[Rfam]
RNA sequence: CUGCGCGGUGCCAACCCCGGGCUGCUCCGACGUCAUCUGGUGAGGAUGCUUGGCCCCAAUGCCUGCGCUACAGCCACGCCUGGCCGCCCCGUGUUGCAGGGCUGAUCGGUCCCGAUUCUUCGGGGCUAUGGCUUCUCUGUGUCAAAAGCGGCGGUCACAUCG
Numbered sequence: 001c002u003g004c005g006c007g008g009u010g011c012c013a014a015c016c017c018c019g020g021g022c023u024g025c026u027c028c029g030a031c032g033u034c035a036u037c038u039g040g041u042g043a044g045g046a047u048g049c050u051u052g053g054c055c056c057c058a059a060u061g062c063c064u065g066c067g068c069u070a071c072a073g074c075c076a077c078g079c080c081u082g083g084c085c086g087c088c089c090c091g092u093g094u095u096g097c098a099g100g101g102c103u104g105a106u107c108g109g110u111c112c113c114g115a116u117u118c119u120u121c122g123g124g125g126c127u128a129u130g131g132c133u134u135c136u137c138u139g140u141g142u143c144a145a146a147a148g149c150g151g152c153g154g155u156c157a158c159a160u161c162g
Stems, first nucleotide, its partner, number of pairs: 003068006010062002019056005024049002026046003083155006089148001092144002095141006101132003

Rfam assigns this 162-nucleotide RNA sequence from Spirodela intermedia to the family "small nucleolar RNA snoR134". The family's RNA type in Rfam is H/ACA-box small nucleolar RNA. NCBI's taxonomy places the organism under Eukaryota, Tracheophyta, Magnoliopsida, Liliopsida, Spirodela. The literature on the family includes a 2009 paper in Nucleic Acids Res by Chen and Wu, "Mining small RNA sequencing data: a new approach to identify small nucleolar RNAs in Arabidopsis". The base pairs follow the family's consensus structure, which was predicted with RNAalifold.